[Rfam]
RNA: Z30 small nucleolar RNA
Organism: Mola mola
RNA sequence: CUGCAGUGAUGAGUGUGACGUGACUGAUCUGGUAUUGCUCUCUUCCAGGGAGAGCUCUGACCAGCAAAUGAUCUCAGUUUAAUCUUCUCUCUGAGCAG
Numbered sequence: 001c002u003g004c005a006g007u008g009a010u011g012a013g014u015g016u017g018a019c020g021u022g023a024c025u026g027a028u029c030u031g032g033u034a035u036u037g038c039u040c041u042c043u044u045c046c047a048g049g050g051a052g053a054g055c056u057c058u059g060a061c062c063a064g065c066a067a068a069u070g071a072u073c074u075c076a077g078u079u080u081a082a083u084c085u086u087c088u089c090u091c092u093g094a095g096c097a098g
Stems, first nucleotide, its partner, number of pairs: 003096002037055004